[Rfam]
Rfam assigns this 97-nucleotide RNA from Chitinasiproducens palmae to the family "SAH (S-adenosyl-L-homocysteine) riboswitch aptamer". Pairs were carried over by alignment from the consensus structure, which is taken from published work. Lineage of the source: Bacteria > Pseudomonadota > Betaproteobacteria > Burkholderiales > Chitinasiproducens. The literature on the family includes a 2008 paper in Mol Cell by Wang et al., "Riboswitches that sense S-adenosylhomocysteine and activate genes involved in coenzyme recycling". Rfam 15.1 lists 1,354 matches to the family in 1,132 species.
RNA sequence: UGUUUCGAGGAGCGUUGCGACGGGUUUGCCCGCCAGGCUCGGAACGCGUUUCUCCCGCCGCGCAACGCGCGGCGCGACCCAACGGCGCUCACGUCUU
Numbered sequence: 001u002g003u004u005u006c007g008a009g010g011a012g013c014g015u016u017g018c019g020a021c022g023g024g025u026u027u028g029c030c031c032g033c034c035a036g037g038c039u040c041g042g043a044a045c046g047c048g049u050u051u052c053u054c055c056c057g058c059c060g061c062g063c064a065a066c067g068c069g070c071g072g073c074g075c076g077a078c079c080c081a082a083c084g085g086c087g088c089u090c091a092c093g094u095c096u097u
Stems, first nucleotide, its partner, number of pairs: 002045007021032004